Record summary: The record is a 351-nucleotide part of an RNA from Treponema ruminis, which matches "Bacterial small subunit ribosomal RNA" in Rfam. NCBI's taxonomy places the organism under Bacteria, Spirochaetota, Spirochaetia, Treponemataceae, Treponema. Pairs were carried over by alignment from the consensus structure, which is taken from published work. The match comes from Rfam's covariance-model search (1514 bits). Rfam links the family to the GO terms structural constituent of ribosome and ribosome.

[Rfam]
RNA sequence: GGCGUAAAGGGCAUGUAGGCGGCCUGGUAAGUCGGGCGUGAAAUCACGGGGCUCAACCCCGUGGCUGCGCCCGAUACUGUCUGGCUUGAGUCAGCGAGGCGGAGGCGGAAUUCCUGGUGUAGGGGUGAAAUCUGUAGAUAUCAGGAAGAACACCGGUGGCGAAGGCAGCCUCCGAGCGCAUGACUGACGCUGAGGUGCGAAGGUGCGGGGAGCGAACAGGAUUAGAUACCCUGGUAGUCCGCACAGUAAACGAUGCGCACUUGGUGUGCGGCCAAGAGGCUGUGCGCCGAAGCAAACGCGAUAAGUGCGCCGCCUGGGGAGUAUGCCCGCAAGGGUGAAACUCAAAGGAAU
Numbered sequence: 001g002g003c004g005u006a007a008a009g010g011g012c013a014u015g016u017a018g019g020c021g022g023c024c025u026g027g028u029a030a031g032u033c034g035g036g037c038g039u040g041a042a043a044u045c046a047c048g049g050g051g052c053u054c055a056a057c058c059c060c061g062u063g064g065c066u067g068c069g070c071c072c073g074a075u076a077c078u079g080u081c082u083g084g085c086u087u088g089a090g091u092c093a094g095c096g097a098g099g100c101g102g103a104g105g106c107g108g109a110a111u112u113c114c115u116g117g118u119g120u121a122g123g124g125g126u127g128a129a130a131u132c133u134g135u136a137g138a139u140a141u142c143a144g145g146a147a148g149a150a151c152a153c154c155g156g157u158g159g160c161g162a163a164g165g166c167a168g169c170c171u172c173c174g175a176g177c178g179c180a181u182g183a184c185u186g187a188c189g190c191u192g193a194g195g196u197g198c199g200a201a202g203g204u205g206c207g208g209g210g211a212g213c214g215a216a217c218a219g220g221a222u223u224a225g226a227u228a229c230c231c232u233g234g235u236a237g238u239c240c241g242c243a244c245a246g247u248a249a250a251c252g253a254u255g256c257g258c259a260c261u262u263g264g265u266g267u268g269c270g271g272c273c274a275a276g277a278g279g280c281u282g283u284g285c286g287c288c289g290a291a292g293c294a295a296a297c298g299c300g301a302u303a304a305g306u307g308c309g310c311c312g313c314c315u316g317g318g319g320a321g322u323a324u325g326c327c328c329g330c331a332a333g334g335g336u337g338a339a340a341c342u343c344a345a346a347g348g349a350a351u
Base pairs, nucleotide, nucleotide: 001314002313003312009311011198012197013196014195016192018191019190020189022085023084024083026081027080028079030078031077032074033073034072035071036070037069038068039067040066045063046062047061048060049059050058051057089185090184091183094179095178096177100174101173102172103171104170105169106168107151111147112146113145114144115143116142117141118140122133123132124131159166160165203244204243205242206241207240208239212238213237217233218232219231220230255310256309257308258307259306260305263288264287265286266285267284268283269282270281271280272279273278292299293298316343317342318341325336326335327334328333